RNA: Streptomyces RNA 1601
RNA sequence: AACGACCGGUCGGACACGCACGCUCACGGCAGCGGGUCCGGCCCACAAGUGGAGGCUUCGAACUCCCACCUGGCCGUCCUCUGGGCGGCGGGUCACCGGUCAGGCGGUCCCUCCUCAGCGGCGGUGACCGGCCCGAAAGCGCGCCCCGCGAUCAUCGCGACGGUGCUCCGGUAGCAGUUCGAGGAGCCCCGCCUGUGAUCGGCCGGGGCAUUUUUC
Numbered sequence: 001a002a003c004g005a006c007c008g009g010u011c012g013g014a015c016a017c018g019c020a021c022g023c024u025c026a027c028g029g030c031a032g033c034g035g036g037u038c039c040g041g042c043c044c045a046c047a048a049g050u051g052g053a054g055g056c057u058u059c060g061a062a063c064u065c066c067c068a069c070c071u072g073g074c075c076g077u078c079c080u081c082u083g084g085g086c087g088g089c090g091g092g093u094c095a096c097c098g099g100u101c102a103g104g105c106g107g108u109c110c111c112u113c114c115u116c117a118g119c120g121g122c123g124g125u126g127a128c129c130g131g132c133c134c135g136a137a138a139g140c141g142c143g144c145c146c147c148g149c150g151a152u153c154a155u156c157g158c159g160a161c162g163g164u165g166c167u168c169c170g171g172u173a174g175c176a177g178u179u180c181g182a183g184g185a186g187c188c189c190c191g192c193c194u195g196u197g198a199u200c201g202g203c204c205g206g207g208g209c210a211u212u213u214u215u216c
Stems, first nucleotide, its partner, number of pairs: 004101006012039004040094005046072002049069004053064002073089007103133003107129001110124002113121002143209006149201003156197003159193001161191003165187005